[Rfam]
RNA sequence: ACCGAGCUCAGCCACAGGGGGUCGGGCCGGCUGAUGGCCUCGUCGCCGAUCUGGUCGCCGUCGGUGACGACGCCGAGGAUCUCCUCCUCGCCGUACUUUCCCUCCGCGAAGCGGGUGAACCUGCCGUGCACGACGAGGUACGCCUCCGUCACGGGCUGCCCGGCCUCGACCAGCACCUGGCCGGCGCGGACCUCCCGGACCCGGAACCGGGUGGCGACCUCCCUGAGGACCUCGGUGUCGGCGUAGCCGCGCAGCACCGGCAGUUCGGUGAGGGUCUCGGGGAUGACCUUGAUGUCGUCGGCGCCGUUGUGCUCGAACUGCACCCGCCCCCGGCCCACGCGGAGCUGCAGACGGCGGUUGACCCGGUAGGCGCCGCCCUUCACGUCCACCCAGGGCAGCAUGCGCAGCAGCCAGCGCGAGCUGAUGGCCUGCAUCUGGGGUUCGGACUUGGUGGUCGUGGUGAGCUGCCGGGCAGCCUGGGUGCUGAGGCUGGUGAGCUGACCGUCGGA
Numbered sequence: 001a002c003c004g005a006g007c008u009c010a011g012c013c014a015c016a017g018g019g020g021g022u023c024g025g026g027c028c029g030g031c032u033g034a035u036g037g038c039c040u041c042g043u044c045g046c047c048g049a050u051c052u053g054g055u056c057g058c059c060g061u062c063g064g065u066g067a068c069g070a071c072g073c074c075g076a077g078g079a080u081c082u083c084c085u086c087c088u089c090g091c092c093g094u095a096c097u098u099u100c101c102c103u104c105c106g107c108g109a110a111g112c113g114g115g116u117g118a119a120c121c122u123g124c125c126g127u128g129c130a131c132g133a134c135g136a137g138g139u140a141c142g143c144c145u146c147c148g149u150c151a152c153g154g155g156c157u158g159c160c161c162g163g164c165c166u167c168g169a170c171c172a173g174c175a176c177c178u179g180g181c182c183g184g185c186g187c188g189g190a191c192c193u194c195c196c197g198g199a200c201c202c203g204g205a206a207c208c209g210g211g212u213g214g215c216g217a218c219c220u221c222c223c224u225g226a227g228g229a230c231c232u233c234g235g236u237g238u239c240g241g242c243g244u245a246g247c248c249g250c251g252c253a254g255c256a257c258c259g260g261c262a263g264u265u266c267g268g269u270g271a272g273g274g275u276c277u278c279g280g281g282g283a284u285g286a287c288c289u290u291g292a293u294g295u296c297g298u299c300g301g302c303g304c305c306g307u308u309g310u311g312c313u314c315g316a317a318c319u320g321c322a323c324c325c326g327c328c329c330c331c332g333g334c335c336c337a338c339g340c341g342g343a344g345c346u347g348c349a350g351a352c353g354g355c356g357g358u359u360g361a362c363c364c365g366g367u368a369g370g371c372g373c374c375g376c377c378c379u380u381c382a383c384g385u386c387c388a389c390c391c392a393g394g395g396c397a398g399c400a401u402g403c404g405c406a407g408c409a410g411c412c413a414g415c416g417c418g419a420g421c422u423g424a425u426g427g428c429c430u431g432c433a434u435c436u437g438g439g440g441u442u443c444g445g446a447c448u449u450g451g452u453g454g455u456c457g458u459g460g461u462g463a464g465c466u467g468c469c470g471g472g473c474a475g476c477c478u479g480g481g482u483g484c485u486g487a488g489g490c491u492g493g494u495g496a497g498c499u500g501a502c503c504g505u506c507g508g509a
Base pairs, nucleotide, nucleotide: 006390008388011385012384016380017328018327020325021324022322023320024319026312027311032309033308034307035306036305037304039303042302043301044300045299047297048296049295052229055226056225057224060221062108063107072100075098076097077096079094080093083090114219115218116217120213124209126207127206129203132200134198137195138194142192147189152184154182155181156180157175158174162171163170232292233291234290237287238286239285240284242282247280248279249278251276253275255273257268258267259266329341331339332338351379353377354376355375356374357373362370363369391431392430393429394428396426397425399423400422403418404417405416407415437476440473442471443470444469445468448464449463451461452460477508478507480503481502482501484500486498
Dot-bracket structure: .....(.(..((...(((.(((((.((....((((((.(..((((.(((..(..(((..(.((........(..(((.((..(......)..)).))).)......)).....(((...(...(.((.(..(.(..((...(....(....(.(((((...((......))..))....))).)....)..).))..).)..)..)).)...)...))).)..)))..)..(((..((((.(....(((.(.(.(.(((......)))....).)).))).).))))..)))..))).))))))))))).))......)).).)).))(.((.....)).).........(.(((((....((.....))..))))).))...))..).)((((.((.((..(((.(.......))))...)).)).)))).....(..(.((((..((.((.......)).))...)))).)..)((.(((.(.(...........).))))...)).